RNA sequence: GUGAAGUUGAUCACAAGCAAACAUUUACCCCUUUGUUUGACCGUGAAAAAUUUCUCCCAUCCCCUUUGUUCGUAUAAAAUAGAAAAAAGACUUUGUAGUUGGAGCUGCAAGGUCUUUUU
Numbered sequence: 001g002u003g004a005a006g007u008u009g010a011u012c013a014c015a016a017g018c019a020a021a022c023a024u025u026u027a028c029c030c031c032u033u034u035g036u037u038u039g040a041c042c043g044u045g046a047a048a049a050a051u052u053u054c055u056c057c058c059a060u061c062c063c064c065u066u067u068g069u070u071c072g073u074a075u076a077a078a079a080u081a082g083a084a085a086a087a088a089g090a091c092u093u094u095g096u097a098g099u100u101g102g103a104g105c106u107g108c109a110a111g112g113u114c115u116u117u118u119u
Stems, first nucleotide, its partner, number of pairs: 003054006011046004018039006070083001074080001087116013
RNA: RNA Staph. aureus E (RoxS)
Organism: Mesobacillus subterraneus